[Rfam]
RNA sequence: GGACUCGAAGGUGAUCGGGCUGCACCAUCUGUCACCCCACAGAUCUCCAGGGCAGAUUCAGCUGAUCUGGCUGGCAAGGUGGGUGUCCCCUUCCUGCCCCAAGGCUCCAUGUGUGUCCCUGCCAGAGCUGCACGCUCGCUCCCAGGUGACAGCACCGUUCUUCGCUCAAGGGCACACGGCAGCUGCGCUCCCCGGCCACAAACUCAAAAUAGGAGUGGCAUUUUAGACCUAGAGGCUGAAUAUGUGUGCUCUGUCAGAAACCAAAUGCAAUAGAUCCAUGGCUUUCUUUUGGUGGGUGAAGGCGGUAACAGCUUUGGUGGCACCAGAGCAGUGUGCAGCAAUACUCUUGAAAGAUGUAGGCAGAAUUGGGUUUUGCUGAAUCAAGGUCUAUUUGAAGGAGAACGUAGGCUGGUCAGGCUUCCAAGACUGCAGACACAGCCAAGUGAGGUGUGGCAGGGGGCAUUUCUCCAGUUGUU
Numbered sequence: 001g002g003a004c005u006c007g008a009a010g011g012u013g014a015u016c017g018g019g020c021u022g023c024a025c026c027a028u029c030u031g032u033c034a035c036c037c038c039a040c041a042g043a044u045c046u047c048c049a050g051g052g053c054a055g056a057u058u059c060a061g062c063u064g065a066u067c068u069g070g071c072u073g074g075c076a077a078g079g080u081g082g083g084u085g086u087c088c089c090c091u092u093c094c095u096g097c098c099c100c101a102a103g104g105c106u107c108c109a110u111g112u113g114u115g116u117c118c119c120u121g122c123c124a125g126a127g128c129u130g131c132a133c134g135c136u137c138g139c140u141c142c143c144a145g146g147u148g149a150c151a152g153c154a155c156c157g158u159u160c161u162u163c164g165c166u167c168a169a170g171g172g173c174a175c176a177c178g179g180c181a182g183c184u185g186c187g188c189u190c191c192c193c194g195g196c197c198a199c200a201a202a203c204u205c206a207a208a209a210u211a212g213g214a215g216u217g218g219c220a221u222u223u224u225a226g227a228c229c230u231a232g233a234g235g236c237u238g239a240a241u242a243u244g245u246g247u248g249c250u251c252u253g254u255c256a257g258a259a260a261c262c263a264a265a266u267g268c269a270a271u272a273g274a275u276c277c278a279u280g281g282c283u284u285u286c287u288u289u290u291g292g293u294g295g296g297u298g299a300a301g302g303c304g305g306u307a308a309c310a311g312c313u314u315u316g317g318u319g320g321c322a323c324c325a326g327a328g329c330a331g332u333g334u335g336c337a338g339c340a341a342u343a344c345u346c347u348u349g350a351a352a353g354a355u356g357u358a359g360g361c362a363g364a365a366u367u368g369g370g371u372u373u374u375g376c377u378g379a380a381u382c383a384a385g386g387u388c389u390a391u392u393u394g395a396a397g398g399a400g401a402a403c404g405u406a407g408g409c410u411g412g413u414c415a416g417g418c419u420u421c422c423a424a425g426a427c428u429g430c431a432g433a434c435a436c437a438g439c440c441a442a443g444u445g446a447g448g449u450g451u452g453g454c455a456g457g458g459g460g461c462a463u464u465u466c467u468c469c470a471g472u473u474g475u476u
Stems, first nucleotide, its partner, number of pairs: 001108003005102001007100001010097001013093002018090002026085008035074002037070003042067004047061001116149002118146004123138001125136001127135002182418003188412002192408002195405002203400003210394004441476002447469002450464001453461002